small nucleolar RNA snoR117: a 72-nucleotide sequence from Citrus x clementina. Gene Ontology terms of the family: nucleolus and RNA processing. The family's consensus secondary structure was predicted with RNAalifold.
[Rfam]
RNA sequence: GGCCGCUGAUGUUCACAAAUUUGUCCGUACCAUCUGAUUUCUGAUUGAUUACCAAUUAUCCUUCUGAGGCCU
Numbered sequence: 001g002g003c004c005g006c007u008g009a010u011g012u013u014c015a016c017a018a019a020u021u022u023g024u025c026c027g028u029a030c031c032a033u034c035u036g037a038u039u040u041c042u043g044a045u046u047g048a049u050u051a052c053c054a055a056u057u058a059u060c061c062u063u064c065u066g067a068g069g070c071c072u
Stems, first nucleotide, its partner, number of pairs: 001071004